[Rfam]
RNA sequence: GCGGAGACGAAAGUUUCCGUUCACUCCUCACACCACACUCCGCUCAGGCUUUACGGCCUGGGCGGUU
Numbered sequence: 001g002c003g004g005a006g007a008c009g010a011a012a013g014u015u016u017c018c019g020u021u022c023a024c025u026c027c028u029c030a031c032a033c034c035a036c037a038c039u040c041c042g043c044u045c046a047g048g049c050u051u052u053a054c055g056g057c058c059u060g061g062g063c064g065g066u067u
Stems, first nucleotide, its partner, number of pairs: 001020008041064009

Rfam assigns this 67-nucleotide RNA sequence from Vasconcelosia minhoensis to the family "Cyanobacterial functional RNA 1". A search with the family's covariance model found it, with a score of 53 bits. Taxonomically the source falls in Vasconcelosia minhoensis (Bacteria, Cyanophyceae, Nodosilineales, Vasconcelosia). The literature on the family includes a 2007 paper in BMC Genomics by Voss et al., "A motif-based search in bacterial genomes identifies the ortholog of the small RNA Yfr1 in all lineages of cyanobacteria". Rfam classes the family as a small RNA.